[Rfam]
RNA sequence: UUGUUAGCAAGCGUAGUAUACUCUGGUGAUUACGCCUUGAUAGAGGAGAGUUCGGUUCGACUCCGAACACUUGCGACAAUAAGGAUGUACCAUAACGGUACGUCCUUUUUUUA
Numbered sequence: 001u002u003g004u005u006a007g008c009a010a011g012c013g014u015a016g017u018a019u020a021c022u023c024u025g026g027u028g029a030u031u032a033c034g035c036c037u038u039g040a041u042a043g044a045g046g047a048g049a050g051u052u053c054g055g056u057u058c059g060a061c062u063c064c065g066a067a068c069a070c071u072u073g074c075g076a077c078a079a080u081a082a083g084g085a086u087g088u089a090c091c092a093u094a095a096c097g098g099u100a101c102g103u104c105c106u107u108u109u110u111u112u113a
Base pairs, nucleotide, nucleotide: 003077004076005075007074008073009072010071013068035046036045037044038043051067052066053065054064055063083105084104085103086102087101088100089099090098